Rfam assigns this 55-nucleotide RNA from Aequorivita ciconiae to the family "Whalefall-1 RNA". The family's RNA type in Rfam is small RNA. The family has 14 seed sequences and 134 matches in Rfam 15.1. Pairs were carried over by alignment from the consensus structure, which is taken from published work. The match comes from Rfam's covariance-model search (37 bits). The source organism's lineage runs through Bacteria, Pseudomonadati, Bacteroidota, Flavobacteriia and Aequorivita.
RNA sequence: UUACCUCUCCUCAGGAGAGGUCGGAAUUGCUUUUUCAGCAGUUCCGGGUGAGGAU
Numbered sequence: 001u002u003a004c005c006u007c008u009c010c011u012c013a014g015g016a017g018a019g020g021u022c023g024g025a026a027u028u029g030c031u032u033u034u035u036c037a038g039c040a041g042u043u044c045c046g047g048g049u050g051a052g053g054a055u
Stems, first nucleotide, its partner, number of pairs: 004020007023045009